RNA sequence: UUAAGCGCUGUGAUAGUAACACAUUCCUCGUGCGGCACCAGUAUCAACUGGAGUGACGAUAUCUAUACACCCAUAGAAUUUGAGCGCUU
Numbered sequence: 001u002u003a004a005g006c007g008c009u010g011u012g013a014u015a016g017u018a019a020c021a022c023a024u025u026c027c028u029c030g031u032g033c034g035g036c037a038c039c040a041g042u043a044u045c046a047a048c049u050g051g052a053g054u055g056a057c058g059a060u061a062u063c064u065a066u067a068c069a070c071c072c073a074u075a076g077a078a079u080u081u082g083a084g085c086g087c088u089u
Stems, first nucleotide, its partner, number of pairs: 003089002006086002
Rfam assigns this 89-nucleotide sequence from Nannochloris sp. 'desiccata' to the family "Small nucleolar RNA snoR8a". The base pairs follow the family's consensus structure, which was predicted with WAR. The organism belongs to Nannochloris, within Eukaryota.